The family of this 72-nucleotide sequence from Pheucticus melanocephalus is "tRNA".

[Rfam]
Nucleotides: 072
Base pairs, nucleotide, nucleotide: 001071002070003069004068005067006066007065010025012023013022027043028042029041030040031039048064049063050062051061052060
Number, partner (000 for none) and nucleotide at each position: 001071u002070c003069c004068c005067u006066g007065g008000u009000g010025g011000u012023c013022u014000a015000g016000u017000g018000g019000u020000c021000a022013g023012g024000u025010u026000u027043u028042g029041g030040c031039a032000c033000u034000c035000u036000c037000a038000c039031u040030g041029c042028u043027g044000c045000g046000g047000c048064c049063u050062g051061g052060g053000u054000u055000c056000a057000a058000u059000u060052c061051c062050c063049a064048g065007c066006c067005a068004g069003g070002g071001a072000a

The source organism's lineage runs through Eukaryota, Dinosauria, Aves, Neoaves and Pheucticus.